This 72-nucleotide RNA from Sphingobium jiangsuense belongs to the Rfam family "Makes More Granules Regulator RNA (mmgR)".
Rfam classes the family as a small RNA.
Nucleotides: 072
Stems, first nucleotide, its partner, number of pairs: 008018004038059009
Number, partner (000 for none) and nucleotide at each position: 001000g002000g003000g004000a005000c006000c007000u008018g009017c010016c011015u012000u013000u014000c015011a016010g017009g018008c019000a020000u021000c022000c023000u024000c025000u026000c027000c028000u029000a030000g031000a032000a033000c034000u035000u036000u037000c038059a039058a040057g041056c042055c043054g044053c045052c046051c047000u048000u049000c050000g051046g052045g053044g054043c055042g056041g057040u058039u059038u060000u061000u062000u063000u064000u065000u066000g067000g068000g069000u070000u071000g072000u
It scores 42 bits against the family's covariance model. Taxonomically the source falls in Sphingobium (Bacteria, Pseudomonadota, Alphaproteobacteria, Sphingomonadales). Rfam links the family to the GO terms response to nitrogen compound, protein binding and DNA-templated transcription, termination. Rfam describes the family as follows. SuhB later renamed mmgR (makes more granules regulator) was a putative non-coding RNA found multiple times in the Agrobacterium tumefaciens genome and related alpha-proteobacteria. Other non-coding RNAs uncovered in the same analysis include: speF, ybhL, metA, and serC.Several studies inSinorhizobium meliloti showed that suhB element is indeed a non-coding RNA:firstly it was detected on Northern blot and called Sm8RNA, secondly in an RNAseq study referred to as SmelC689.The mutant phenotype's (strain lacking the small RNA) cytoplasm contains higher content of polyhydroxybutyrate (PBH)storage granules than wild type strain. The sRNA is required to limit the PBH intracellular accumulation when the nitrogen-fixing Sinorhizobium meliloti is under condition of surplus carbon in relation to nitrogen. It has been renamed to mmgR. Further study confirmed that mmgR fine-tunes the regulation of PBH storage.Northern blot confirmed the expression of the sRNA in other rhizobia species. MmgR homologues were found in most alpha-proteobacteria.